[Rfam]
Annotation
Y RNA: a 110-nucleotide RNA from Callithrix jacchus. A search with the family's covariance model found it, with a score of 46 bits. It is annotated as a non-coding RNA gene. Rfam describes the family as follows. Y RNAs are components of the Ro ribonucleoprotein particle (Ro RNP), in association with Ro60 and La proteins. A reference for the family is Teunissen et al. (2000), "Conserved features of Y RNAs: a comparison of experimentally derived secondary structures", Nucleic Acids Res.
RNA sequence: GGCUGGUCUGAAAAUAAUGAAUUAUCUUAAUUGAUUGUUCACAGUCAGUUACAGAUAGAACUUGUUCUACUCUUUCCCCUAUCCUUACUAUUGCACUUGACUAGUUUUUU
Numbered sequence: 001g002g003c004u005g006g007u008c009u010g011a012a013a014a015u016a017a018u019g020a021a022u023u024a025u026c027u028u029a030a031u032u033g034a035u036u037g038u039u040c041a042c043a044g045u046c047a048g049u050u051a052c053a054g055a056u057a058g059a060a061c062u063u064g065u066u067c068u069a070c071u072c073u074u075u076c077c078c079c080u081a082u083c084c085u086u087a088c089u090a091u092u093g094c095a096c097u098u099g100a101c102u103a104g105u106u107u108u109u110u
Stems, first nucleotide, its partner, number of pairs: 001106008010098002015093001016089001018087003044071001047068002